[Rfam]
RNA: Plastid-ndhJ 3UTR RNA
Organism: Capsicum baccatum
RNA sequence: UCAUGAACUUUGUACUGCGCACAUUACUUAGAUGGGUCUAGAAGGGCAUUUUGAGA
Numbered sequence: 001u002c003a004u005g006a007a008c009u010u011u012g013u014a015c016u017g018c019g020c021a022c023a024u025u026a027c028u029u030a031g032a033u034g035g036g037u038c039u040a041g042a043a044g045g046g047c048a049u050u051u052u053g054a055g056a
Stems, first nucleotide, its partner, number of pairs: 019037002022034004